[Rfam]
RNA sequence: AAGCAACACUCUGUGGCAGAUAAUCAAAAGUCUGACACAAUUUGAGCUUGCUAUAGCAAGGAAGUCUAACCUAUUCCGGUGUUCUCUUUCCUGUGAGACAAGCUAAUGCUGAGAAUCUUUCUGC
Numbered sequence: 001a002a003g004c005a006a007c008a009c010u011c012u013g014u015g016g017c018a019g020a021u022a023a024u025c026a027a028a029a030g031u032c033u034g035a036c037a038c039a040a041u042u043u044g045a046g047c048u049u050g051c052u053a054u055a056g057c058a059a060g061g062a063a064g065u066c067u068a069a070c071c072u073a074u075u076c077c078g079g080u081g082u083u084c085u086c087u088u089u090c091c092u093g094u095g096a097g098a099c100a101a102g103c104u105a106a107u108g109c110u111g112a113g114a115a116u117c118u119u120u121c122u123g124c
Stems, first nucleotide, its partner, number of pairs: 009046003012039004017034005063116001065114003074108001078104003085098004

A member of the RNA family "Small nucleolar RNA SNORA28" from Physeter macrocephalus, 124 nucleotides long. Rfam classes the family as an H/ACA-box small nucleolar RNA. Rfam's curators write: ACA28 is a member of the H/ACA class of snoRNA that guide the sites of modification of uridines to pseudouridines. Rfam 15.1 lists 922 matches to the family in 535 species. Gene Ontology terms of the family: nucleolus and RNA processing. A search with the family's covariance model found it, with a score of 97 bits.